[Rfam]
RNA sequence: AAAGUCCGGAUUAGGCAAAGGUUAGCCACCAGCCUAACACCUAUACCACAUGCAGGAUGGUAACUGACUGUAUGAAGCUGGUAGAUGGGAGUUAUUAGGCCGUAACGCAAGUGAAGGUAUUAAGCCCCGAAAAUUUACCAUGUUGGGAGAGCCGACAGUGUUCAUAUGCUGGAAGGCAGGAUAUUGCUUAAGCGAAAAGGCAAGUUUAGCAAUACUCCCCGGGGUCUGAGGCCA
Numbered sequence: 001a002a003a004g005u006c007c008g009g010a011u012u013a014g015g016c017a018a019a020g021g022u023u024a025g026c027c028a029c030c031a032g033c034c035u036a037a038c039a040c041c042u043a044u045a046c047c048a049c050a051u052g053c054a055g056g057a058u059g060g061u062a063a064c065u066g067a068c069u070g071u072a073u074g075a076a077g078c079u080g081g082u083a084g085a086u087g088g089g090a091g092u093u094a095u096u097a098g099g100c101c102g103u104a105a106c107g108c109a110a111g112u113g114a115a116g117g118u119a120u121u122a123a124g125c126c127c128c129g130a131a132a133a134u135u136u137a138c139c140a141u142g143u144u145g146g147g148a149g150a151g152c153c154g155a156c157a158g159u160g161u162u163c164a165u166a167u168g169c170u171g172g173a174a175g176g177c178a179g180g181a182u183a184u185u186g187c188u189u190a191a192g193c194g195a196a197a198a199g200g201c202a203a204g205u206u207u208a209g210c211a212a213u214a215c216u217c218c219c220c221g222g223g224g225u226c227u228g229a230g231g232c233c234a
Stems, first nucleotide, its partner, number of pairs: 012036005020030003023203001025201002038087002041084001045082003049074007059064001121228001124225006145219005151177003156171004182214006189208005
A member of the RNA family "Group II catalytic intron D1-D4-6" from Candidatus Atribacteria bacterium MT.SAG.1, 234 nucleotides long.